[Rfam]
RNA sequence: CAUAGAUAGCAUUUCGCUAAAGUACUAGAGUAUAACCUACUCUAGUACUUUAGCGAAAUGCUAUCUAUGC
Numbered sequence: 001c002a003u004a005g006a007u008a009g010c011a012u013u014u015c016g017c018u019a020a021a022g023u024a025c026u027a028g029a030g031u032a033u034a035a036c037c038u039a040c041u042c043u044a045g046u047a048c049u050u051u052a053g054c055g056a057a058a059u060g061c062u063a064u065c066u067a068u069g070c
Stems, first nucleotide, its partner, number of pairs: 003067010015055009025045003029041002
RNA: mir-239 microRNA precursor family
Organism: Hucho hucho